This 138-nucleotide RNA sequence from Peptacetobacter hominis belongs to the Rfam family "FMN riboswitch aptamer (RFN element)".
[Rfam]
RNA sequence: AGAUGUCUUCAGGGCAGGGUGAGAUUCCCGAUCGGCGGUGAUAGUCCGCGAGCACGUUGUGCAGGAGCUGGCAGGUUCAGCUCAGGAUUUGGUGAAAUUCCAAAACCGACAGUAUAGUCUGGAUGGAAGAAGAUGUGU
Numbered sequence: 001a002g003a004u005g006u007c008u009u010c011a012g013g014g015c016a017g018g019g020u021g022a023g024a025u026u027c028c029c030g031a032u033c034g035g036c037g038g039u040g041a042u043a044g045u046c047c048g049c050g051a052g053c054a055c056g057u058u059g060u061g062c063a064g065g066a067g068c069u070g071g072c073a074g075g076u077u078c079a080g081c082u083c084a085g086g087a088u089u090u091g092g093u094g095a096a097a098u099u100c101c102a103a104a105a106c107c108g109a110c111a112g113u114a115u116a117g118u119c120u121g122g123a124u125g126g127a128a129g130a131a132g133a134u135g136u137g138u
Stems, first nucleotide, its partner, number of pairs: 003136008017029003031118002033108002035049004044106002054082001088104005110121003
Dot-bracket structure: ..((((((((......(((.......))).[[((((((.....[[))))....(...........................).....(((((.......)))))]])).(((....]]))).......))))))))..
Pairs were carried over by alignment from the consensus structure, which is taken from published work.